[Rfam]
RNA sequence: CAUCCCUACGAUGAAUUUCUAUUGAAUUUUAUAAGUUGAUAGGCCUGAUUUGCGUUGAAGAAUAGAAAAUUUUGAGGGAUG
Number, nucleotide and partner (000 for none) at each position: 001c081002a080003u079004c078005c077006c076007u000008a000009c000010g000011a000012u000013g000014a000015a000016u000017u000018u000019c000020u000021a000022u000023u000024g000025a000026a000027u000028u000029u000030u000031a000032u000033a000034a000035g000036u000037u000038g000039a000040u000041a000042g000043g000044c000045c000046u000047g000048a000049u000050u000051u000052g000053c000054g000055u000056u000057g000058a000059a000060g000061a000062a000063u000064a000065g000066a000067a000068a000069a000070u000071u000072u000073u000074g000075a000076g006077g005078g004079a003080u002081g001